Record summary
Rfam assigns this 89-nucleotide RNA sequence from Populus tomentosa to the family "rpsL sRNA". The source organism's lineage runs through Eukaryota, Tracheophyta, eudicotyledons, rosids and Populus. The family has 6 seed sequences and 52 matches in Rfam 15.1. For this family Rfam cites "Identification of candidate structured RNAs in the marine organism 'Candidatus Pelagibacter ubique'" (Meyer et al., BMC Genomics, 2009).
RNA sequence: AUUCUGAAUUUUUGGUCGGUAAUUCGGUCGGUAAUUACCGACCGAAUUACCGACAAAAAUGUUCCGUCGGUGAUUUCGACCGAAAAAUA
Numbered sequence: 001a002u003u004c005u006g007a008a009u010u011u012u013u014g015g016u017c018g019g020u021a022a023u024u025c026g027g028u029c030g031g032u033a034a035u036u037a038c039c040g041a042c043c044g045a046a047u048u049a050c051c052g053a054c055a056a057a058a059a060u061g062u063u064c065c066g067u068c069g070g071u072g073a074u075u076u077c078g079a080c081c082g083a084a085a086a087a088u089a
Base pairs, nucleotide, nucleotide: 011084012083013082014081015080016079019077021075022074023073024072025044026043027042028041029040030039049071050070051069052068